This 154-nucleotide RNA from Amborella trichopoda belongs to the Rfam family "MIR8565 microRNA precursor family".
[Rfam]
Nucleotides: 154
Stems, first nucleotide, its partner, number of pairs: 002153012015140001017138003021134008030125003034121018053102014068087001069082005
Number, partner (000 for none) and nucleotide at each position: 001000c002153c003152c004151a005150c006149a007148c008147c009146c010145a011144u012143g013142u014000g015140u016000g017138u018137a019136g020000a021134a022133u023132c024131c025130u026129a027128a028127a029000g030125g031124a032123u033000c034121a035120c036119c037118a038117u039116u040115a041114a042113a043112u044111u045110u046109g047108g048107u049106a050105u051104a052000u053102a054101u055100c056099u057098c058097u059096a060095g061094a062093a063092a064091a065090g066089u067000u068087a069082u070081c071080a072079c073078a074000u075000g076000a077000g078073u079072g080071u081070g082069a083000g084000a085000c086000u087068u088000c089066a090065c091064u092063u093062u094061u095060c096059u097058a098057g099056a100055g101054a102053u103000c104051u105050g106049u107048g108047c109046c110045a111044a112043a113042u114041u115040u116039a117038a118037u119036g120035g121034u122000g123032a124031u125030c126000u127028u128027u129026u130025g131024g132023g133022g134021u135000a136019u137018u138017a139000a140015a141000c142013a143012c144011a145010u146009g147008g148007g149006u150005g151004u152003g153002g154000g

Rfam links the family to the GO terms miRNA-mediated post-transcriptional gene silencing and RISC complex.